The record is a 130-nucleotide RNA sequence from Castor canadensis, which matches "Small nucleolar RNA SNORA51" in Rfam. Rfam links the family to the GO terms RNA processing and nucleolus.
[Rfam]
Nucleotides: 130
Base pairs, nucleotide, nucleotide: 002057003056005054007052021042022041026037027036028035029034071121072120073119075117084108085107089103090102091101092100093099
Number, partner (000 for none) and nucleotide at each position: 001000u002057g003056c004000c005054u006000c007052c008000c009000a010000g011000u012000g013000c014000u015000u016000a017000c018000c019000a020000c021042a022041g023000g024000c025000u026037g027036u028035g029034u030000u031000c032000u033000u034029a035028c036027a037026c038000g039000g040000a041022u042021u043000a044000u045000a046000u047000a048000a049000a050000a051000a052007g053000a054005a055000c056003g057002c058000a059000a060000a061000g062000u063000a064000a065000a066000u067000c068000u069000a070000c071121c072120c073119c074000a075117u076000a077000u078000a079000c080000a081000c082000c083000u084108c085107a086000g087000c088000c089103c090102a091101g092100g093099c094000c095000c096000u097000a098000u099093g100092c101091c102090u103089g104000c105000u106000a107085u108084g109000u110000a111000c112000u113000g114000u115000g116000a117075a118000c119073g120072g121071g122000a123000a124000g125000a126000c127000a128000u129000g130000g
By type it is an H/ACA-box small nucleolar RNA. NCBI's taxonomy places the organism under Eukaryota, Chordata, Mammalia, Theria, Castor. ACA51 is a member of the H/ACA class of snoRNA that guide the sites of modification of uridines to pseudouridines.